[Rfam]
RNA sequence: AAUAACCUUCAGGGCAGGGUGUGAUUCCCUACCGGCGGUAAAGCCCGCGAGCGUAAUGCAUGAUUCGGUGAAAUUCCGAAGCCGACAGUAUAGUCUGGAUGAAAGAAGGAAAAU
Numbered sequence: 001a002a003u004a005a006c007c008u009u010c011a012g013g014g015c016a017g018g019g020u021g022u023g024a025u026u027c028c029c030u031a032c033c034g035g036c037g038g039u040a041a042a043g044c045c046c047g048c049g050a051g052c053g054u055a056a057u058g059c060a061u062g063a064u065u066c067g068g069u070g071a072a073a074u075u076c077c078g079a080a081g082c083c084g085a086c087a088g089u090a091u092a093g094u095c096u097g098g099a100u101g102a103a104a105g106a107a108g109g110a111a112a113a114u
Stems, first nucleotide, its partner, number of pairs: 003112001006109005017029003031094002033084002035048004043082002064080005086097003
RNA: FMN riboswitch aptamer (RFN element)
Organism: Clostridium bornimense